[Rfam]
Nucleotides: 083
Stems, first nucleotide, its partner, number of pairs: 003082004008077001010075002013072010029057006
Number, partner (000 for none) and nucleotide at each position: 001000g002000u003082g004081a005080u006079u007000c008077u009000u010075g011074u012000u013072u014071c015070a016069a017068u018067c019066c020065a021064u022063a023000c024000a025000a026000g027000u028000a029057u030056u031055u032054u033053c034052u035000a036000u037000a038000u039000g040000u041000a042000c043000a044000g045000a046000u047000g048000a049000u050000g051000u052034a053033g054032a055031a056030a057029a058000u059000c060000u061000u062000g063022u064021g065020u066019g067018g068017a069016u070015u071014g072013a073000u074011a075010c076000c077008a078000g079006g080005g081004u082003c083000a

Notes:
Rfam assigns this 83-nucleotide RNA sequence from Ornithorhynchus anatinus to the family "mir-1422 microRNA precursor family". NCBI's taxonomy places the organism under Eukaryota, Dipnotetrapodomorpha, Mammalia, Prototheria, Ornithorhynchus. Rfam links the family to the GO terms miRNA-mediated post-transcriptional gene silencing and RISC complex. The base pairs follow the family's consensus structure, which was predicted with RNAalifold.